Background:
This 80-nucleotide sequence from Sulfuricurvum kujiense belongs to the Rfam family "c-di-GMP-I riboswitch aptamer". The match comes from Rfam's covariance-model search (61 bits).
RNA sequence: UUUAUGAAAAGCCAAACUCAUUGUGAAAUGGGGUCGGAAAGUCAUGGGUCUUUUGUUAUUAAGAUCGCCAGAUUGCCAAU
Numbered sequence: 001u002u003u004a005u006g007a008a009a010a011g012c013c014a015a016a017c018u019c020a021u022u023g024u025g026a027a028a029u030g031g032g033g034u035c036g037g038a039a040a041g042u043c044a045u046g047g048g049u050c051u052u053u054u055g056u057u058a059u060u061a062a063g064a065u066c067g068c069c070a071g072a073u074u075g076c077c078a079a080u
Stems, first nucleotide, its partner, number of pairs: 012037002017032006040074004045070003048065005
Source information: Its family is annotated with cyclic-di-GMP binding in the Gene Ontology.